[Rfam]
RNA sequence: AAGCGAUGAAAUUACUAUUCUUCUGGUAUGGAGUAGAUAAUGGAGCUUGUUGUGGGUUGUAAGUGUAACCGCAAACCAGAAAAGAAAACUUACAUU
Number, nucleotide and partner (000 for none) at each position: 001a048002a047003g046004c045005g000006a000007u000008g000009a000010a000011a041012u040013u039014a038015c000016u036017a034018u033019u032020c031021u030022u000023c079024u078025g077026g076027u000028a000029u000030g021031g020032a019033g018034u017035a000036g016037a000038u014039a013040a012041u011042g000043g000044a000045g004046c003047u002048u001049g000050u000051u000052g000053u000054g000055g000056g000057u000058u000059g000060u000061a091062a090063g089064u000065g000066u000067a000068a000069c000070c000071g000072c000073a000074a000075a000076c026077c025078a024079g023080a000081a000082a000083a000084g000085a000086a000087a000088a000089c063090u062091u061092a000093c000094a000095u000096u000
The record is a 96-nucleotide RNA, which matches "drum RNA" in Rfam. It is one of the family's seed sequences. The family's RNA type in Rfam is small RNA. Rfam's curators write: Firmicutes, Bacteroidetes (1 example), Proteobacteria (2 examples), Spirochaetes (2 examples). Pairs were carried over by alignment from the consensus structure, which is taken from published work.